The record is a 360-nucleotide RNA from Sphingobium wenxiniae, which matches "Alphaproteobacteria transfer-messenger RNA" in Rfam.
The base pairs follow the family's consensus structure, which is taken from published work.
On this family, see Laslett et al., Nucleic Acids Res 2002: "BRUCE: a program for the detection of transfer-messenger RNA genes in nucleotide sequences".
About the family: Bacterial tmRNA, also known as 10Sa RNA or SsrA, is named for its dual tRNA and mRNA-like properties.
RNA sequence: CCGCUUGAUAAAGCGGCCGGCGCGCUCCAUAUAGGACGUGCCGGGUUCGCCCGGCUAUGGUGAUAAAUCGUGUCGUGCAAUAGGCGCAGCGGACCCGGGGGCAGUACCCGGCGGCUCCACCACAUAUCCCGGUGGCCUUUGAAAGGGCUGGACGGGGUGUCUGACGGGGCCGAACUAGGAUCGACGUGUGUUGAAAAGCGAAUGCCUUCACCCGGCCUGAGUACGCCGUAAAAAUGUUCAAAACUCACAAGUGCCAACGAUAACGAGGCUCUUGCUCUUGCUGCGUAAUUGAUGGCCUCACGGCCUGACAUUACCCAAAAAGAACGCGGUUGAACCCACCGGGCAACAGAAGGGAAUUCA
Numbered sequence: 001c002c003g004c005u006u007g008a009u010a011a012a013g014c015g016g017c018c019g020g021c022g023c024g025c026u027c028c029a030u031a032u033a034g035g036a037c038g039u040g041c042c043g044g045g046u047u048c049g050c051c052c053g054g055c056u057a058u059g060g061u062g063a064u065a066a067a068u069c070g071u072g073u074c075g076u077g078c079a080a081u082a083g084g085c086g087c088a089g090c091g092g093a094c095c096c097g098g099g100g101g102c103a104g105u106a107c108c109c110g111g112c113g114g115c116u117c118c119a120c121c122a123c124a125u126a127u128c129c130c131g132g133u134g135g136c137c138u139u140u141g142a143a144a145g146g147g148c149u150g151g152a153c154g155g156g157g158u159g160u161c162u163g164a165c166g167g168g169g170c171c172g173a174a175c176u177a178g179g180a181u182c183g184a185c186g187u188g189u190g191u192u193g194a195a196a197a198g199c200g201a202a203u204g205c206c207u208u209c210a211c212c213c214g215g216c217c218u219g220a221g222u223a224c225g226c227c228g229u230a231a232a233a234a235u236g237u238u239c240a241a242a243a244c245u246c247a248c249a250a251g252u253g254c255c256a257a258c259g260a261u262a263a264c265g266a267g268g269c270u271c272u273u274g275c276u277c278u279u280g281c282u283g284c285g286u287a288a289u290u291g292a293u294g295g296c297c298u299c300a301c302g303g304c305c306u307g308a309c310a311u312u313a314c315c316c317a318a319a320a321a322g323a324a325c326g327c328g329g330u331u332g333a334a335c336c337c338a339c340c341g342g343g344c345a346a347c348a349g350a351a352g353g354g355a356a357u358u359c360a
Stems, first nucleotide, its partner, number of pairs: 040055005059212005070205003073201004085190003089187003095111005112172007213228004218240003327341004332359003337354001